[Rfam]
RNA sequence: CGCGUCUUUCUUCGGGGCGGAGCUCGACCGCCACUACCGGAAGUAGUCGCGUUCAUCGACGCGAACAAAGACGACGUCGUGGACUGCCGUCGCCUCGGAGUCGAGCUCAUCUGCAGACUGUUGCAGGUGGCUCCG
Dot-bracket structure: ...............(((((.......)))))...............................................................(((((......((.(((((((....))))))).)))))))